[Rfam]
RNA sequence: GGCCUCUCUCUGUGGAGCCAUCCAUCAUGGAGCCCCAUGAUGGAUGACUCCGCAGAGGGAGGCC
Numbered sequence: 001g002g003c004c005u006c007u008c009u010c011u012g013u014g015g016a017g018c019c020a021u022c023c024a025u026c027a028u029g030g031a032g033c034c035c036c037a038u039g040a041u042g043g044a045u046g047a048c049u050c051c052g053c054a055g056a057g058g059g060a061g062g063c064c
Base pairs, nucleotide, nucleotide: 001064002063003062004061005060006059007058008057009056010055011054012053013052014051015050016049017048019046020045021044022043023042024041025040026039027038028037029036030035
RNA: mir-9242 microRNA precursor family